[Rfam]
RNA sequence: UAAGUAAGUCAGAUGGUCGCGUCUGCAAGUACCGAAAGGUCGCAGAUGAGGAACGUCCGGGCUCCACAGAGCAAAGGUGCUGGGUAACCCCCAGUGGAGGCGACUCUAAGGAAAGUGCAACAGAAAUAAACCACCUAUUGCAUGCAAUAGGAAAGGGUGGAAAGGUGAGGUAAGAGCUCACCGUUUCUAGGGUGACCUAGAAAGCCAUGUAAACCCCACCUGGAGCAAGACCGGAUAAAGACAUAUGUGGCUGCUCGUCACGUCUUAGGUAGGUUGCUAGAGCCUUAUAGGUAACUAUAGGUCGAGAUAGAUGACUAUCAAAUACAGAACCCGGCGUAUAGACUUGGUUAACAG
Numbered sequence: 001u002a003a004g005u006a007a008g009u010c011a012g013a014u015g016g017u018c019g020c021g022u023c024u025g026c027a028a029g030u031a032c033c034g035a036a037a038g039g040u041c042g043c044a045g046a047u048g049a050g051g052a053a054c055g056u057c058c059g060g061g062c063u064c065c066a067c068a069g070a071g072c073a074a075a076g077g078u079g080c081u082g083g084g085u086a087a088c089c090c091c092c093a094g095u096g097g098a099g100g101c102g103a104c105u106c107u108a109a110g111g112a113a114a115g116u117g118c119a120a121c122a123g124a125a126a127u128a129a130a131c132c133a134c135c136u137a138u139u140g141c142a143u144g145c146a147a148u149a150g151g152a153a154a155g156g157g158u159g160g161a162a163a164g165g166u167g168a169g170g171u172a173a174g175a176g177c178u179c180a181c182c183g184u185u186u187c188u189a190g191g192g193u194g195a196c197c198u199a200g201a202a203a204g205c206c207a208u209g210u211a212a213a214c215c216c217c218a219c220c221u222g223g224a225g226c227a228a229g230a231c232c233g234g235a236u237a238a239a240g241a242c243a244u245a246u247g248u249g250g251c252u253g254c255u256c257g258u259c260a261c262g263u264c265u266u267a268g269g270u271a272g273g274u275u276g277c278u279a280g281a282g283c284c285u286u287a288u289a290g291g292u293a294a295c296u297a298u299a300g301g302u303c304g305a306g307a308u309a310g311a312u313g314a315c316u317a318u319c320a321a322a323u324a325c326a327g328a329a330c331c332c333g334g335c336g337u338a339u340a341g342a343c344u345u346g347g348u349u350a351a352c353a354g
Stems, first nucleotide, its partner, number of pairs: 001350003005346006011339001012319007020048007028040001053337003057334005062225004071255001075221005080094005095109001096107004110216002115214002117210003131156002134151007164182006183205001184203008229275004238266005247261005282302004287298004
Rfam assigns this 354-nucleotide RNA from Zhenhengia yiwuensis to the family "Bacterial RNase P class A". The family's consensus secondary structure is taken from published work. By type it is a ribozyme. Gene Ontology terms of the family: tRNA processing, ribonuclease P activity and dimeric ribonuclease P complex.